[Rfam]
RNA sequence: AGAAAAAGAUUGCCGAAUUUCUUCUUAGACGAAAGGAAGAGAACGGGGGAUCCACUCUGGGUGAAUUGAUCUUGCAACAAAGGGAUCAUAGGGGACCUUCUACCGAACCCUCCAGCUAACCUCGUAGGCACAGGAAGGAGCAACA
Numbered sequence: 001a002g003a004a005a006a007a008g009a010u011u012g013c014c015g016a017a018u019u020u021c022u023u024c025u026u027a028g029a030c031g032a033a034a035g036g037a038a039g040a041g042a043a044c045g046g047g048g049g050a051u052c053c054a055c056u057c058u059g060g061g062u063g064a065a066u067u068g069a070u071c072u073u074g075c076a077a078c079a080a081a082g083g084g085a086u087c088a089u090a091g092g093g094g095a096c097c098u099u100c101u102a103c104c105g106a107a108c109c110c111u112c113c114a115g116c117u118a119a120c121c122u123c124g125u126a127g128g129c130a131c132a133g134g135a136a137g138g139a140g141c142a143a144c145a
Base pairs, nucleotide, nucleotide: 011130012129013128014127018042019041020040021039022038023037024036025035026034043125044124045123046122047121048120059110060109061108067088068087069086070085071084072083073082091104092103
Dot-bracket structure: ..........((((...(((((((((.......)))))))))((((((..........(((.....(((((((........)))))))..((..........))...))).........)))))).))))...............